[Rfam]
RNA sequence: AAGGUGGUAUCGCCAAGGAGCGAACCGCACUUGCCGGCUUAUAACAGCAAUAACAGCUUCAUACCCGUCAUGAUUUCGCGGCGGAUUCUGCUCUGAGCCUUAAGGGACCGAGACAGAAGG
Numbered sequence: 001a002a003g004g005u006g007g008u009a010u011c012g013c014c015a016a017g018g019a020g021c022g023a024a025c026c027g028c029a030c031u032u033g034c035c036g037g038c039u040u041a042u043a044a045c046a047g048c049a050a051u052a053a054c055a056g057c058u059u060c061a062u063a064c065c066c067g068u069c070a071u072g073a074u075u076u077c078g079c080g081g082c083g084g085a086u087u088c089u090g091c092u093c094u095g096a097g098c099c100u101u102a103a104g105g106g107a108c109c110g111a112g113a114c115a116g117a118a119g120g
Stems, first nucleotide, its partner, number of pairs: 001032003004028005010023004088116003091112003095108001098106002
Dot-bracket structure: ((((((((.((((......))))))))).))).......................................................((((((.(..((.....)).).))).)))....
Shown here is a 120-nucleotide sequence from Cohnella faecalis, a member of the family "pan motif". A search with the family's covariance model found it, with a score of 42 bits. NCBI's taxonomy places the organism under Bacteria, Bacillati, Bacilli, Caryophanales, Cohnella.